Brucella sRNA CI414: a 228-nucleotide RNA sequence from Brucella sp. NF 2653.
Lineage of the source: Bacteria > Pseudomonadota > Alphaproteobacteria > Brucellaceae > Brucella.
The literature on the family includes a 2014 paper in FEMS Microbiol Lett by Dong et al., "Identification of novel sRNAs in Brucella abortus 2308".
The family's RNA type in Rfam is small RNA.
RNA sequence: GCUGGCAUUCCCUGGCAUAUUGGUGCGCCGCCUCUGAAAGGUGCAGCGCGGAAUAAAGAUCCCAGAGCGGCUUGCCGGACCUUUGCGCGCGCAGCCGCUCUGACUAUUUGUUUUUACGCAUUCCGACCACUUGACGGGAACGCCCCAAAAAUGAAGACCCGGCAGAAAACCACCGUCGAUGAAAACCAUCUGACAAUAUAAAAGGCGCCGCUGAACGGCGCCUUUUAU
Numbered sequence: 001g002c003u004g005g006c007a008u009u010c011c012c013u014g015g016c017a018u019a020u021u022g023g024u025g026c027g028c029c030g031c032c033u034c035u036g037a038a039a040g041g042u043g044c045a046g047c048g049c050g051g052a053a054u055a056a057a058g059a060u061c062c063c064a065g066a067g068c069g070g071c072u073u074g075c076c077g078g079a080c081c082u083u084u085g086c087g088c089g090c091g092c093a094g095c096c097g098c099u100c101u102g103a104c105u106a107u108u109u110g111u112u113u114u115u116a117c118g119c120a121u122u123c124c125g126a127c128c129a130c131u132u133g134a135c136g137g138g139a140a141c142g143c144c145c146c147a148a149a150a151a152u153g154a155a156g157a158c159c160c161g162g163c164a165g166a167a168a169a170c171c172a173c174c175g176u177c178g179a180u181g182a183a184a185a186c187c188a189u190c191u192g193a194c195a196a197u198a199u200a201a202a203a204g205g206c207g208c209c210g211c212u213g214a215a216c217g218g219c220g221c222c223u224u225u226u227a228u
Stems, first nucleotide, its partner, number of pairs: 001163005008155003012138002014135001016133002019131001021129004025049004029043005050114008063102010074092002076089002080085001175194003178190004198228013